[Rfam]
RNA sequence: ACAAUCCUGCUGUGUACGUAGACUCGAUCACGUUUUGAGCCAACAUCACUUAUACGGGAAUCUGGGUUUAUUGAUGGAAGAAAAGCCUCCUACAGAGAGGACUUCGGAACUCAGUAACAGGAUACCCACCUGCUGAGGCAGGUUUCAAAACAAUCGAUAAACGGCAUGGCGGGUCACUG
Numbered sequence: 001a002c003a004a005u006c007c008u009g010c011u012g013u014g015u016a017c018g019u020a021g022a023c024u025c026g027a028u029c030a031c032g033u034u035u036u037g038a039g040c041c042a043a044c045a046u047c048a049c050u051u052a053u054a055c056g057g058g059a060a061u062c063u064g065g066g067u068u069u070a071u072u073g074a075u076g077g078a079a080g081a082a083a084a085g086c087c088u089c090c091u092a093c094a095g096a097g098a099g100g101a102c103u104u105c106g107g108a109a110c111u112c113a114g115u116a117a118c119a120g121g122a123u124a125c126c127c128a129c130c131u132g133c134u135g136a137g138g139c140a141g142g143u144u145u146c147a148a149a150a151c152a153a154u155c156g157a158u159a160a161a162c163g164g165c166a167u168g169g170c171g172g173g174u175c176a177c178u179g
Stems, first nucleotide, its partner, number of pairs: 006173010017163003032151007039143003056127003060123004065118001067117001069116006081104002086100004